[Rfam]
RNA sequence: AAUAAAUCCACUAAAAUCCGCACAUAUACCGUCACAAAGGUCAGGGUGCUCUGUUAAGUCAGGGUUGAUCGAUGGGGUAUAUGGAGGCCUAAC
Dot-bracket structure: ......................((((((((....((..(((((....(((((........))))))))))..)).))))))))..........